Rfam assigns this 88-nucleotide RNA from Mesocricetus auratus to the family "Small nucleolar RNA SNORD111".
On this family, see Galardi et al., Mol Cell Biol 2002: "Purified box C/D snoRNPs are able to reproduce site-specific 2'-O-methylation of target RNA in vitro".
The family's RNA type in Rfam is C/D-box small nucleolar RNA.
Rfam links the family to the GO terms nucleolus and RNA processing.
NCBI's taxonomy places the organism under Eukaryota, Eumetazoa, Bilateria, Mammalia, Mesocricetus.
RNA sequence: CAGCCUGAAAUGAUGACUCUAAUUUCAUGUCUCUUCUCUGACAUUUUUCUCCUGUGAUGAUUUGUACCUUACUGAUCUGAUCAGGCUG
Numbered sequence: 001c002a003g004c005c006u007g008a009a010a011u012g013a014u015g016a017c018u019c020u021a022a023u024u025u026c027a028u029g030u031c032u033c034u035u036c037u038c039u040g041a042c043a044u045u046u047u048u049c050u051c052c053u054g055u056g057a058u059g060a061u062u063u064g065u066a067c068c069u070u071a072c073u074g075a076u077c078u079g080a081u082c083a084g085g086c087u088g
Base pairs, nucleotide, nucleotide: 001088002087003086004085005084